[Rfam]
RNA sequence: AUUUGUCUUUGAGGCGGGGGGCGGUUCCCCACCGGCGGUAUAGCCCGCGAGCUUGAGCCUAUGGCAGAAUGUCAUUUCUGCCCAUGGCAUGGCAUGAUUCGGUGAGAUUCCGAAGCCGACCGUAUAGUCGGGAUGAGAAAAGGCAGUG
Numbered sequence: 001a002u003u004u005g006u007c008u009u010u011g012a013g014g015c016g017g018g019g020g021g022c023g024g025u026u027c028c029c030c031a032c033c034g035g036c037g038g039u040a041u042a043g044c045c046c047g048c049g050a051g052c053u054u055g056a057g058c059c060u061a062u063g064g065c066a067g068a069a070u071g072u073c074a075u076u077u078c079u080g081c082c083c084a085u086g087g088c089a090u091g092g093c094a095u096g097a098u099u100c101g102g103u104g105a106g107a108u109u110c111c112g113a114a115g116c117c118g119a120c121c122g123u124a125u126a127g128u129c130g131g132g133a134u135g136a137g138a139a140a141a142g143g144c145a146g147u148g
Stems, first nucleotide, its partner, number of pairs: 003146008017029003031128002033118002035048004043116002053092003098114005120131003
Shown here is a 148-nucleotide RNA sequence from Mitsuokella sp. oral taxon 131, a member of the family "FMN riboswitch aptamer (RFN element)". The source organism's lineage runs through Bacteria, Bacillati, Negativicutes, Mitsuokella and Mitsuokella sp. oral taxon 131. About the family: The RFN element is a highly conserved domain that is found frequently in the 5'-untranslated regions of prokaryotic mRNAs that encode for flavin mononucleotide (FMN) biosynthesis and transport proteins.